[Rfam]
RNA sequence: UCCGCUCAUAAAUGUAUAGAACGCAAGACAGUUCAGCAUUUCCCUAAGUGGUUUAGAAUGAUUAGAAGUACAAUCAACAAUAUGGUUUGUGUAGUUAUGCUGAAAAUCGUUGAGGUUGUAUGGAAUAGGUUAACCGUAAGACCUUAAGUUGAAAAACUUUAAAAUUAAUCUCAGGUAAAUUACUUUGAGUUACGGUGUU
Number, nucleotide and partner (000 for none) at each position: 001u000002c051003c050004g049005c048006u047007c000008a045009u000010a041011a040012a039013u038014g037015u036016a000017u035018a000019g034020a033021a032022c031023g029024c000025a000026a000027g000028a000029c023030a000031g022032u021033u020034c019035a017036g015037c014038a013039u012040u011041u010042c000043c000044c000045u008046a000047a006048g005049u004050g003051g002052u000053u000054u000055a000056g000057a000058a000059u000060g000061a000062u000063u000064a000065g000066a000067a000068g121069u120070a119071c118072a117073a116074u115075c114076a000077a000078c000079a000080a000081u000082a110083u109084g108085g107086u106087u105088u104089g000090u000091g000092u000093a101094g100095u000096u000097a000098u000099g000100c094101u093102g000103a000104a088105a087106a086107u085108c084109g083110u082111u000112g000113a000114g075115g074116u073117u072118g071119u070120a069121u068122g000123g000124a000125a000126u000127a144128g143129g142130u141131u140132a000133a196134c195135c194136g193137u192138a191139a165140g131141a130142c129143c128144u127145u000146a159147a158148g157149u156150u155151g000152a000153a000154a000155a150156a149157c148158u147159u146160u000161a000162a000163a000164a000165u139166u000167a000168a000169u000170c189171u188172c187173a186174g185175g183176u182177a181178a000179a000180u000181u177182a176183c175184u000185u174186u173187g172188a171189g170190u000191u138192a137193c136194g135195g134196u133197g000198u000199u000
RNA: IS605-orfB-I RNA